[Rfam]
RNA sequence: AGGUAUUUGAGUAUAUGGGGAUGAAUGUCAGACAUUCAAUGUAAAGCUGGAGAGAAAAACAAAAGGGGAAAGAAUUUUCCCCUUUUUAGAUAACU
Numbered sequence: 001a002g003g004u005a006u007u008u009g010a011g012u013a014u015a016u017g018g019g020g021a022u023g024a025a026u027g028u029c030a031g032a033c034a035u036u037c038a039a040u041g042u043a044a045a046g047c048u049g050g051a052g053a054g055a056a057a058a059a060c061a062a063a064a065g066g067g068g069a070a071a072g073a074a075u076u077u078u079c080c081c082c083u084u085u086u087u088a089g090a091u092a093a094c095u
Base pairs, nucleotide, nucleotide: 008038010036011035012034016032019029020028062086063085064084065083066082067081068080070078071077072076
RNA: sraA